[Rfam]
RNA sequence: GCAUGGCUGAGUAUGUGUUCUUUUUAUCAGAUGUUUGCAUAGCCAGACAUCAUGCGAAAAAUGAAAGUGCAUUCUUCCCUUUAAAGUCAUUAAGAUGAGAUGCUAAGUUUCUUCAUAGCAUAUCAUUAUCAAAGGGAAAUACAAAU
Numbered sequence: 001g002c003a004u005g006g007c008u009g010a011g012u013a014u015g016u017g018u019u020c021u022u023u024u025u026a027u028c029a030g031a032u033g034u035u036u037g038c039a040u041a042g043c044c045a046g047a048c049a050u051c052a053u054g055c056g057a058a059a060a061a062u063g064a065a066a067g068u069g070c071a072u073u074c075u076u077c078c079c080u081u082u083a084a085a086g087u088c089a090u091u092a093a094g095a096u097g098a099g100a101u102g103c104u105a106a107g108u109u110u111c112u113u114c115a116u117a118g119c120a121u122a123u124c125a126u127u128a129u130c131a132a133a134g135g136g137a138a139a140u141a142c143a144a145a146u
Stems, first nucleotide, its partner, number of pairs: 001055006014041005075139002078135005084129001094127005100121006